[Rfam]
This 83-nucleotide RNA from Bombyx mori belongs to the Rfam family "mir-263 microRNA precursor family". Lineage of the source: Eukaryota > Opisthokonta > Ecdysozoa > Panarthropoda > Bombyx. Gene Ontology terms of the family: RISC complex and miRNA-mediated post-transcriptional gene silencing. Its Rfam clan is "mir-182 clan".

RNA sequence: CCACGCUGUUCCUUGGCACUGGGAGAAUUCACAGGAGUUGUAAUUCAUACCCGUGAAUUUCCCGAUGCCUUAGCUCAGUGUGG
Dot-bracket structure: ..((((((......((((.((((.((..((((.(................).)))).))).))).))))......))))))..
Numbered sequence: 001c002c003a004c005g006c007u008g009u010u011c012c013u014u015g016g017c018a019c020u021g022g023g024a025g026a027a028u029u030c031a032c033a034g035g036a037g038u039u040g041u042a043a044u045u046c047a048u049a050c051c052c053g054u055g056a057a058u059u060u061c062c063c064g065a066u067g068c069c070u071u072a073g074c075u076c077a078g079u080g081u082g083g
Stems, first nucleotide, its partner, number of pairs: 003081006015069004020064003023060001025059002029056004034051001